[Rfam]
RNA sequence: CAAAAGGGUGUUUACCUUACUCAAUGGUACGCAGGUCUAAUUGACUUGUGAGGUAUGGUUAUCUAGACAUACCUAACACAUAAUUUUUGGAACGAGGUAGAAGUUCUAAAGACUAUUUAAGUCUGGACGCUACCU
Number, nucleotide and partner (000 for none) at each position: 001c000002a000003a000004a000005a000006g000007g000008g079009u078010g077011u076012u075013u029014a028015c027016c026017u000018u000019a000020c000021u000022c000023a000024a000025u000026g016027g015028u014029a013030c050031g049032c048033a047034g046035g045036u044037c043038u000039a000040a000041u000042u000043g037044a036045c035046u034047u033048g032049u031050g030051a074052g073053g072054u071055a070056u069057g068058g000059u000060u000061a000062u000063c000064u000065a000066g000067a000068c057069a056070u055071a054072c053073c052074u051075a012076a011077c010078a009079c008080a000081u000082a000083a000084u000085u000086u000087u000088u000089g000090g000091a000092a000093c000094g000095a000096g000097g133098u132099a131100g130101a000102a000103g128104u127105u126106c125107u000108a124109a000110a122111g000112a000113c000114u000115a000116u000117u000118u000119a000120a000121g000122u110123c000124u108125g106126g105127a104128c103129g000130c100131u099132a098133c097134c000135u000
RNA: U11 spliceosomal RNA
Organism: Armadillidium nasatum